[Rfam]
RNA sequence: AAUCCAUCAGGAAGUCCUGAGAGACCCGGCUCUGUGAAGGGCUGGCAACCGAUCUCCGCCCUCGGGCGAGGCCACGGUGCCAAUGCCGGGAACGAUGAAUU
Numbered sequence: 001a002a003u004c005c006a007u008c009a010g011g012a013a014g015u016c017c018u019g020a021g022a023g024a025c026c027c028g029g030c031u032c033u034g035u036g037a038a039g040g041g042c043u044g045g046c047a048a049c050c051g052a053u054c055u056c057c058g059c060c061c062u063c064g065g066g067c068g069a070g071g072c073c074a075c076g077g078u079g080c081c082a083a084u085g086c087c088g089g090g091a092a093c094g095a096u097g098a099a100u101u
Stems, first nucleotide, its partner, number of pairs: 001101003005097004013043005021032003026089004044081004049077002051073001053071004085093001
This 101-nucleotide RNA belongs to the Rfam family "SAM riboswitch aptamer (S box leader)". Rfam links the family to the GO term regulation of gene expression. The SAM riboswitch is found upstream of a number of genes which code for proteins involved in methionine or cysteine biosynthesis in Gram-positive bacteria. The SAM riboswitch acts at the level of transcription termination control.